[Rfam]
RNA: flg-Rhizobiales RNA
Organism: Bradyrhizobiaceae bacterium
RNA sequence: CGGACCACGGCUUGGGAGAGCUUGAGUGGUCCACGAGAUCCACGAACCGGCUUGGGAGAGCCGCUCGUUGGAACAGGGGAGAUCACCCGAUGGAGAACAUGCUUCUCGUCGGAUUGUCGCGGCAGAUGACGCUUC
Numbered sequence: 001c002g003g004a005c006c007a008c009g010g011c012u013u014g015g016g017a018g019a020g021c022u023u024g025a026g027u028g029g030u031c032c033a034c035g036a037g038a039u040c041c042a043c044g045a046a047c048c049g050g051c052u053u054g055g056g057a058g059a060g061c062c063g064c065u066c067g068u069u070g071g072a073a074c075a076g077g078g079g080a081g082a083u084c085a086c087c088c089g090a091u092g093g094a095g096a097a098c099a100u101g102c103u104u105c106u107c108g109u110c111g112g113a114u115u116g117u118c119g120c121g122g123c124a125g126a127u128g129a130c131g132c133u134u135c
Stems, first nucleotide, its partner, number of pairs: 002032007009022005037074001039072004049062005087112005093107005